[Rfam]
RNA sequence: CAUCCUCAGCCUUACUGCAGGGGCUUUUUGCCUGGAGAGUGCCCUGGCAUUGCUUAAGGAUAGAGGAGAAAGUAUUCCCUCCCCAGCAAGAGUCUGCUUUCUUGUGGGGCCUACAGAUUGAGCUGGCAGG
Numbered sequence: 001c002a003u004c005c006u007c008a009g010c011c012u013u014a015c016u017g018c019a020g021g022g023g024c025u026u027u028u029u030g031c032c033u034g035g036a037g038a039g040u041g042c043c044c045u046g047g048c049a050u051u052g053c054u055u056a057a058g059g060a061u062a063g064a065g066g067a068g069a070a071a072g073u074a075u076u077c078c079c080u081c082c083c084c085a086g087c088a089a090g091a092g093u094c095u096g097c098u099u100u101c102u103u104g105u106g107g108g109g110c111c112u113a114c115a116g117a118u119u120g121a122g123c124u125g126g127c128a129g130g
Stems, first nucleotide, its partner, number of pairs: 003060004008055002011052001018046005023040005071124003075120001081109005088103004